[Rfam]
RNA sequence: ACUCGGGCACGAUCCGGCUAGCGGCCGGAACCGACCCGAAGUUCAAUCCUGAGGGA
Numbered sequence: 001a002c003u004c005g006g007g008c009a010c011g012a013u014c015c016g017g018c019u020a021g022c023g024g025c026c027g028g029a030a031c032c033g034a035c036c037c038g039a040a041g042u043u044c045a046a047u048c049c050u051g052a053g054g055g056a
Stems, first nucleotide, its partner, number of pairs: 001042003004038004013029007
RNA: L31-Corynebacteriaceae ribosomal protein leader